[Rfam]
RNA sequence: CUACAAUGAUGGUAGUAUUUUUGAUCAAUAGCAGUUCAUCUAGUGAAGGUUGAUACUUUGGGUCUGAGUGA
Dot-bracket structure: .(((...(((.............))).........................................))).
Numbered sequence: 001c002u003a004c005a006a007u008g009a010u011g012g013u014a015g016u017a018u019u020u021u022u023g024a025u026c027a028a029u030a031g032c033a034g035u036u037c038a039u040c041u042a043g044u045g046a047a048g049g050u051u052g053a054u055a056c057u058u059u060g061g062g063u064c065u066g067a068g069u070g071a
Stems, first nucleotide, its partner, number of pairs: 002070003008026003
The family of this 71-nucleotide RNA sequence from Microcebus murinus is "Small nucleolar RNA SNORD56".
Its family is annotated with RNA processing and nucleolus in the Gene Ontology.
Taxonomically the source falls in Microcebus (Eukaryota, Deuterostomia, Craniata, Tetrapoda).
The base pairs follow the family's consensus structure, which was predicted with PFOLD.
The match comes from Rfam's covariance-model search (79 bits).
The literature on the family includes a 2002 paper in Mol Cell Biol by Galardi et al., "Purified box C/D snoRNPs are able to reproduce site-specific 2'-O-methylation of target RNA in vitro".